[Rfam]
RNA sequence: CAUCCACGAACUCAUUCGUAGGGCAGGAGCGGGGGACCCAGGUAAGUCGCCGGUCCGGACGGCAUAUGCCGCACCGGGACGGCUCGGGGUGAAGCCGUGCCUCUUCCAGGGCACGGCCGGGCACCUCCCCGCCCGAACCCGACAGCUCACCUCGCAGGCGCCGGAGAGGAACU
Numbered sequence: 001c002a003u004c005c006a007c008g009a010a011c012u013c014a015u016u017c018g019u020a021g022g023g024c025a026g027g028a029g030c031g032g033g034g035g036a037c038c039c040a041g042g043u044a045a046g047u048c049g050c051c052g053g054u055c056c057g058g059a060c061g062g063c064a065u066a067u068g069c070c071g072c073a074c075c076g077g078g079a080c081g082g083c084u085c086g087g088g089g090u091g092a093a094g095c096c097g098u099g100c101c102u103c104u105u106c107c108a109g110g111g112c113a114c115g116g117c118c119g120g121g122c123a124c125c126u127c128c129c130c131g132c133c134c135g136a137a138c139c140c141g142a143c144a145g146c147u148c149a150c151c152u153c154g155c156a157g158g159c160g161c162c163g164g165a166g167a168g169g170a171a172c173u
Base pairs, nucleotide, nucleotide: 003028004027005026029155030154031153032152033151034150039086087140088139089138095116096115097114098113099112100111101110119134120133121132122131
Dot-bracket structure: ..(((....................)))((((((....(..............................................)(((.....(((((((........)))))))..((((........))))...))).........))))))..................
The record is a 173-nucleotide sequence from Streptomyces sp. SID161, which matches "c-di-AMP riboswitch aptamer (ydaO/yuaA leader)" in Rfam. The match comes from Rfam's covariance-model search (54 bits). The organism belongs to Streptomyces, within Bacteria. Gene Ontology terms of the family: regulation of gene expression and cyclic-di-AMP binding.